[Rfam]
This 81-nucleotide sequence from Sphaerochaeta globosa belongs to the Rfam family "Group II catalytic intron D1-D4-1". On this family, see Lehmann and Schmidt, Crit Rev Biochem Mol Biol 2003: "Group II introns: structure and catalytic versatility of large natural ribozymes". From the family's description: Group II introns are found in rRNA, tRNA and mRNA of organelles in fungi, plants and protists, and also in mRNA in bacteria.

RNA sequence: GGAGGGUCAAAGCAACAUGUGCUGUUCGGCCGCAGAAGUCAGCAGAGGUCAUAGUAGCGGCAUCGGAAUGACGUGAAGGAC
Numbered sequence: 001g002g003a004g005g006g007u008c009a010a011a012g013c014a015a016c017a018u019g020u021g022c023u024g025u026u027c028g029g030c031c032g033c034a035g036a037a038g039u040c041a042g043c044a045g046a047g048g049u050c051a052u053a054g055u056a057g058c059g060g061c062a063u064c065g066g067a068a069u070g071a072c073g074u075g076a077a078g079g080a081c
Base pairs, nucleotide, nucleotide: 001026002025004023005022008019009018039046040045048081049080050079057074058073059072061070062069